This 304-nucleotide RNA sequence from Saccharomyces uvarum belongs to the Rfam family "Small nucleolar RNA snR83". Rfam links the family to the GO terms RNA processing and nucleolus. The family is grouped with related families in Rfam's "SNORA4 clan". Lineage of the source: Eukaryota > Ascomycota > saccharomyceta > Saccharomycetes > Saccharomyces uvarum. The literature on the family includes a 2004 paper in Nucleic Acids Res by Schattner et al., "Genome-wide searching for pseudouridylation guide snoRNAs: analysis of the Saccharomyces cerevisiae genome". Rfam's curators put it in the seed alignment.
[Rfam]
RNA sequence: ACCCAAAAACAUCAAGAAAAGCCUUUCAAUAAAUUGCUUUUUUCUUGGCGAGGAGGAGAGGGAAGGUGAGAAUGGGGCCUGAGACUUCGGUUGCGGGUUCUCUUUUUUUCUUUCUCUUUUUUUUUCCCGGAAAAUAACUUUUCAGGACCGAUUACCGUAGUUGCGACUACACCAAUUGUUGUUCACACCCCCACGAUUUUUGAAAACUAGUUUUUGGCAUAAUAACGUUUAGAUUUCCCUUUUCCACCCUAAUUUGUAUUUAAUUGUUCGUUACAAAAUUGGGACUAUAUUAGGGGCGACAUUU
Numbered sequence: 001a002c003c004c005a006a007a008a009a010c011a012u013c014a015a016g017a018a019a020a021g022c023c024u025u026u027c028a029a030u031a032a033a034u035u036g037c038u039u040u041u042u043u044c045u046u047g048g049c050g051a052g053g054a055g056g057a058g059a060g061g062g063a064a065g066g067u068g069a070g071a072a073u074g075g076g077g078c079c080u081g082a083g084a085c086u087u088c089g090g091u092u093g094c095g096g097g098u099u100c101u102c103u104u105u106u107u108u109u110c111u112u113u114c115u116c117u118u119u120u121u122u123u124u125u126c127c128c129g130g131a132a133a134a135u136a137a138c139u140u141u142u143c144a145g146g147a148c149c150g151a152u153u154a155c156c157g158u159a160g161u162u163g164c165g166a167c168u169a170c171a172c173c174a175a176u177u178g179u180u181g182u183u184c185a186c187a188c189c190c191c192c193a194c195g196a197u198u199u200u201u202g203a204a205a206a207c208u209a210g211u212u213u214u215u216g217g218c219a220u221a222a223u224a225a226c227g228u229u230u231a232g233a234u235u236u237c238c239c240u241u242u243u244c245c246a247c248c249c250u251a252a253u254u255u256g257u258a259u260u261u262a263a264u265u266g267u268u269c270g271u272u273a274c275a276a277a278a279u280u281g282g283g284a285c286u287a288u289a290u291u292a293g294g295g296g297c298g299a300c301a302u303u304u
Stems, first nucleotide, its partner, number of pairs: 003217008025204005034196003040134006047128002050126002053124009070105003074101008083092003145184004149178005157170005236296005248283008256274003